[Rfam]
The record is a 76-nucleotide sequence from Polypterus senegalus, which matches "Small nucleolar RNA SNORD59" in Rfam. Its family is annotated with nucleolus and RNA processing in the Gene Ontology.
RNA sequence: CCCUCCAUGAUGAGUCAGAUGAUGUGACUUUCGUUCUUCUGAGUUUACUGAAGCCAACAUUGUUUCUCUGAGAGGG
Numbered sequence: 001c002c003c004u005c006c007a008u009g010a011u012g013a014g015u016c017a018g019a020u021g022a023u024g025u026g027a028c029u030u031u032c033g034u035u036c037u038u039c040u041g042a043g044u045u046u047a048c049u050g051a052a053g054c055c056a057a058c059a060u061u062g063u064u065u066c067u068c069u070g071a072g073a074g075g076g
Base pairs, nucleotide, nucleotide: 001076002075003074005072
A search with the family's covariance model found it, with a score of 75 bits. The organism belongs to Polypterus, within Eukaryota.